Small nucleolar RNA Z199: a 79-nucleotide RNA from Arabis nemorensis. Lineage of the source: Eukaryota > Embryophyta > Spermatophyta > Pentapetalae > Arabis. On this family, see Chen et al., Nucleic Acids Res 2003: "The high diversity of snoRNAs in plants: identification and comparative study of 120 snoRNA genes from Oryza sativa". About the family: snoZ199 is a C/D box small nucleolar RNA, which acts as a methylation guide RNA for sites on 18S and 25S rRNA. Rice snoZ199 is reported to be homologous to Arabidopsis snoR13. By type it is a C/D-box small nucleolar RNA.
RNA sequence: GAUCAGUUGAUGAGCAAAUACUGCAACAAUAUGAUGGAGAAAAUCUUUGUGAUUCUUAGUAUGAUCCAAUUUGAUUAUC
Numbered sequence: 001g002a003u004c005a006g007u008u009g010a011u012g013a014g015c016a017a018a019u020a021c022u023g024c025a026a027c028a029a030u031a032u033g034a035u036g037g038a039g040a041a042a043a044u045c046u047u048u049g050u051g052a053u054u055c056u057u058a059g060u061a062u063g064a065u066c067c068a069a070u071u072u073g074a075u076u077a078u079c
Base pairs, nucleotide, nucleotide: 001078003077005075036048037047038046039045040044